[Rfam]
Nucleotides: 189
Stems, first nucleotide, its partner, number of pairs: 002157002005154002011148004023050002028047006035040001054087006060079003064075003091144003096139004104135010171188006
Number, partner (000 for none) and nucleotide at each position: 001000g002157g003156g004000u005154u006153u007000a008000a009000c010000u011148c012147c013146u014145g015000c016000u017000u018000g019000u020000u021000a022000c023050c024049g025000u026000u027000u028047c029046a030045u031044c032043u033042g034000a035040c036000c037000u038000g039000a040035g041000c042033c043032g044031g045030a046029u047028g048000u049024c050023g051000u052000u053000u054087u055086g056085g057084u058083g059082u060079c061078u062077g063000a064075u065074u066073c067000g068000g069000u070000a071000a072000g073066g074065a075064a076000c077062c078061g079060g080000g081000a082059g083058c084057a085056c086055c087054a088000u089000c090000u091144g092143c093142g094000u095000a096139g097138g098137c099136u100000u101000g102000a103000g104135g105134u106133u107132u108131a109130a110129g111128a112127c113126u114000u115000u116000c117000g118000c119000c120000g121000c122000c123000u124000a125000c126113g127112g128111u129110c130109u131108u132107g133106g134105a135104u136099a137098g138097c139096c140000c141000c142093c143092g144091c145014c146013a147012g148011g149000c150000a151000g152000g153006g154005a155000c156003c157002c158000c159000a160000a161000u162000u163000u164000u165000c166000g167000c168000a169000a170000c171188g172187g173186c174185g175184c176183g177000g178000u179000u180000a181000c182000c183176c184175g185174c186173g187172c188171c189000g
About this RNA
A member of the RNA family "Pseudomonas sRNA P27" from Pseudomonas sp., 189 nucleotides long. The organism belongs to Pseudomonas, within Bacteria. The family's RNA type in Rfam is small RNA. The match comes from Rfam's covariance-model search (197 bits). On this family, see Livny et al., Nucleic Acids Res 2006: "Identification of 17 Pseudomonas aeruginosa sRNAs and prediction of sRNA-encoding genes in 10 diverse pathogens using the bioinformatic tool sRNAPredict2". Pairs were carried over by alignment from the consensus structure, which was predicted with WAR.